[Rfam]
RNA sequence: AAAUUGAAGAGUUUGAUCAUGGCUCAGAUUGAACGCUGGCGGCAGGCUUAACACAUGCAAGUCGAACGGUAACAUGAGUGCUUGCACUUGAUGACGAGUGGCGGACGGGUGAGUAAAGUAUGGGGAUCUGCCGAAUGGAAGGGGACAACAGUUGGAAACGACUGCUAAUACCGUAUAAUGUCGCGAGACCAAAGCAUGGGACUUUCGGGCCAUGCGCCAUUUGAUGAACCCAUAUGGGAUUAGCUAGUAGGUGGGGUAAAGGCUCACCUAGGCGACGAUCUCUAGCUGGUCUGAGAGGAUGGCCAGCCACACUGGAACUGAGACACGGUCCAGACUCCUACGGGAGGCAGCAGUGGGGAAUAUUGCACAAUGGGGGGAACCCUGAUGCAGCCAUGCCGCGUGUAUGAAGAAGGCCUUCGGGUUGUAAAGUACUUUCGGUGAUGAGGAAGGUGAUGUAUCUAAUAGGUACAUCAAUUGACGUUAAUUACAGAAGAAGCACCGGCUAACUCCGUGCCAGCAGCCGCGGUAAUACGGAGGGUGCGAGCGUUAAUCGGAAUGACUG
Numbered sequence: 001a002a003a004u005u006g007a008a009g010a011g012u013u014u015g016a017u018c019a020u021g022g023c024u025c026a027g028a029u030u031g032a033a034c035g036c037u038g039g040c041g042g043c044a045g046g047c048u049u050a051a052c053a054c055a056u057g058c059a060a061g062u063c064g065a066a067c068g069g070u071a072a073c074a075u076g077a078g079u080g081c082u083u084g085c086a087c088u089u090g091a092u093g094a095c096g097a098g099u100g101g102c103g104g105a106c107g108g109g110u111g112a113g114u115a116a117a118g119u120a121u122g123g124g125g126a127u128c129u130g131c132c133g134a135a136u137g138g139a140a141g142g143g144g145a146c147a148a149c150a151g152u153u154g155g156a157a158a159c160g161a162c163u164g165c166u167a168a169u170a171c172c173g174u175a176u177a178a179u180g181u182c183g184c185g186a187g188a189c190c191a192a193a194g195c196a197u198g199g200g201a202c203u204u205u206c207g208g209g210c211c212a213u214g215c216g217c218c219a220u221u222u223g224a225u226g227a228a229c230c231c232a233u234a235u236g237g238g239a240u241u242a243g244c245u246a247g248u249a250g251g252u253g254g255g256g257u258a259a260a261g262g263c264u265c266a267c268c269u270a271g272g273c274g275a276c277g278a279u280c281u282c283u284a285g286c287u288g289g290u291c292u293g294a295g296a297g298g299a300u301g302g303c304c305a306g307c308c309a310c311a312c313u314g315g316a317a318c319u320g321a322g323a324c325a326c327g328g329u330c331c332a333g334a335c336u337c338c339u340a341c342g343g344g345a346g347g348c349a350g351c352a353g354u355g356g357g358g359a360a361u362a363u364u365g366c367a368c369a370a371u372g373g374g375g376g377g378a379a380c381c382c383u384g385a386u387g388c389a390g391c392c393a394u395g396c397c398g399c400g401u402g403u404a405u406g407a408a409g410a411a412g413g414c415c416u417u418c419g420g421g422u423u424g425u426a427a428a429g430u431a432c433u434u435u436c437g438g439u440g441a442u443g444a445g446g447a448a449g450g451u452g453a454u455g456u457a458u459c460u461a462a463u464a465g466g467u468a469c470a471u472c473a474a475u476u477g478a479c480g481u482u483a484a485u486u487a488c489a490g491a492a493g494a495a496g497c498a499c500c501g502g503c504u505a506a507c508u509c510c511g512u513g514c515c516a517g518c519a520g521c522c523g524c525g526g527u528a529a530u531a532c533g534g535a536g537g538g539u540g541c542g543a544g545c546g547u548u549a550a551u552c553g554g555a556a557u558g559a560c561u562g
Stems, first nucleotide, its partner, number of pairs: 009025005027552004032548006039399006045392002047357001052355003056352003061102003066099002069095002075090006109310003118235007127227002132223007140174001142172002149164006180189003194215006236282003243273003248270008285307004289300004312333005335346004363389001365388003371384005402432004412423004436493001438488005446479001452472006496541005507536005517524002
RNA: Bacterial small subunit ribosomal RNA, nucleotides 1 to 562